RNA sequence: UUCAAGUAUAGUUGUGGGUUUCCGUAUCUAAGGUUUGACCAUCCGUCUUAUUUAAAAAAUUUAUGAGAAAAUAAAAAAAAGUCACGUAUAAAGUACUAUUUAUAUUUUAUCAUCUAAUAACAAUAAAAAUACUAAUCAUAAAAAAAUUUAGAUAAGACAGACGGUCAAACGUAGUACACGGAAACACACACCUGCACUUAAA
Numbered sequence: 001u002u003c004a005a006g007u008a009u010a011g012u013u014g015u016g017g018g019u020u021u022c023c024g025u026a027u028c029u030a031a032g033g034u035u036u037g038a039c040c041a042u043c044c045g046u047c048u049u050a051u052u053u054a055a056a057a058a059a060u061u062u063a064u065g066a067g068a069a070a071a072u073a074a075a076a077a078a079a080a081g082u083c084a085c086g087u088a089u090a091a092a093g094u095a096c097u098a099u100u101u102a103u104a105u106u107u108u109a110u111c112a113u114c115u116a117a118u119a120a121c122a123a124u125a126a127a128a129a130u131a132c133u134a135a136u137c138a139u140a141a142a143a144a145a146a147u148u149u150a151g152a153u154a155a156g157a158c159a160g161a162c163g164g165u166c167a168a169a170c171g172u173a174g175u176a177c178a179c180g181g182a183a184a185c186a187c188a189c190a191c192c193u194g195c196a197c198u199u200a201a202a
Stems, first nucleotide, its partner, number of pairs: 027176001028174003032170001034169007042161002045158007
Shown here is a 202-nucleotide RNA from Oryza barthii, a member of the family "MIR812 microRNA precursor family". The organism belongs to Oryza, within Eukaryota. Gene Ontology terms of the family: RISC complex and miRNA-mediated post-transcriptional gene silencing.